[Rfam]
RNA sequence: AGAACUCAUGAGGUCCCCCCGAAAACGGCGGGUUUCCCGCCCGAGGGGGCCGAGGUUCGAAAGAUUUAAAAAGCCAUCCUAGUCAACGAGACUAGA
Numbered sequence: 001a002g003a004a005c006u007c008a009u010g011a012g013g014u015c016c017c018c019c020c021g022a023a024a025a026c027g028g029c030g031g032g033u034u035u036c037c038c039g040c041c042c043g044a045g046g047g048g049g050c051c052g053a054g055g056u057u058c059g060a061a062a063g064a065u066u067u068a069a070a071a072a073g074c075c076a077u078c079c080u081a082g083u084c085a086a087c088g089a090g091a092c093u094a095g096a
Stems, first nucleotide, its partner, number of pairs: 004057001012051007020043002027041006